Overview: L4-Archaeoglobi ribosomal protein leades: a 94-nucleotide RNA. For this family Rfam cites "Discovery of 20 novel ribosomal leader candidates in bacteria and archaea" (Eckert and Weinberg, BMC Microbiol, 2020). Rfam's curators put it in the seed alignment.

RNA sequence: CUGAUAAAGGCGUCUGGGUGGAAAUCGGAGUCGAUCGCCCUGUGCCCCUCGUCACAGACGAGAAAUACAAGUUGGGGCAGCGCCUGAACGUCAG
Numbered sequence: 001c002u003g004a005u006a007a008a009g010g011c012g013u014c015u016g017g018g019u020g021g022a023a024a025u026c027g028g029a030g031u032c033g034a035u036c037g038c039c040c041u042g043u044g045c046c047c048c049u050c051g052u053c054a055c056a057g058a059c060g061a062g063a064a065a066u067a068c069a070a071g072u073u074g075g076g077g078c079a080g081c082g083c084c085u086g087a088a089c090g091u092c093a094g
Stems, first nucleotide, its partner, number of pairs: 001094005008085006016040003024035004043079005048062006

The family's RNA type in Rfam is cis-regulatory leader.